RNA sequence: CAGCCUGAAGUGAUGAGUUUUUCAUGUCUCUUCUCUGAGAUGUAUCAUGGAGAUAGCAUUUCACUCUGAUUGGGCUC
Numbered sequence: 001c002a003g004c005c006u007g008a009a010g011u012g013a014u015g016a017g018u019u020u021u022u023c024a025u026g027u028c029u030c031u032u033c034u035c036u037g038a039g040a041u042g043u044a045u046c047a048u049g050g051a052g053a054u055a056g057c058a059u060u061u062c063a064c065u066c067u068g069a070u071u072g073g074g075c076u077c
Base pairs, nucleotide, nucleotide: 002076003075004074005073
Shown here is a 77-nucleotide sequence from Gopherus agassizii, a member of the family "Small nucleolar RNA SNORD111". Rfam classes the family as a C/D-box small nucleolar RNA. The match comes from Rfam's covariance-model search (49 bits). For this family Rfam cites "RNomics: an experimental approach that identifies 201 candidates for novel, small, non-messenger RNAs in mouse" (Huttenhofer et al., EMBO J, 2001). Lineage of the source: Eukaryota > Opisthokonta > Teleostomi > Testudinata > Gopherus.